[Rfam]
This 147-nucleotide RNA from Aquibium carbonis belongs to the Rfam family "speF leader". The match comes from Rfam's covariance-model search (93 bits).

RNA sequence: UUCCGGUCGUCCAAAGACCGGGGUUACUGAAGAGGCACACCAUCAUUGCCGGCAGUGCGGUUGGGAUCUCCCAUCCAAGCCAAGGCAGACAAAGCGGAUUACGGCCGGGCGGUCGUGAUCCAUCGCCGCGAGACGGCAUUGCGUGGU
Numbered sequence: 001u002u003c004c005g006g007u008c009g010u011c012c013a014a015a016g017a018c019c020g021g022g023g024u025u026a027c028u029g030a031a032g033a034g035g036c037a038c039a040c041c042a043u044c045a046u047u048g049c050c051g052g053c054a055g056u057g058c059g060g061u062u063g064g065g066a067u068c069u070c071c072c073a074u075c076c077a078a079g080c081c082a083a084g085g086c087a088g089a090c091a092a093a094g095c096g097g098a099u100u101a102c103g104g105c106c107g108g109g110c111g112g113u114c115g116u117g118a119u120c121c122a123u124c125g126c127c128g129c130g131a132g133a134c135g136g137c138a139u140u141g142c143g144u145g146g147u
Base pairs, nucleotide, nucleotide: 001023002022003021004020005019006018007017008016034050035049036048037047058130059129085095102115103114104113105112106111
Rfam describes the family as follows. This family is a putative regulatory RNA structure that is found upstream of the speF gene encoding ornithine decarboxylase in Agrobacterium tumefaciens and other alpha-proteobacteria. Its family is annotated with regulation of gene expression in the Gene Ontology. Rfam classes the family as a cis-regulatory leader.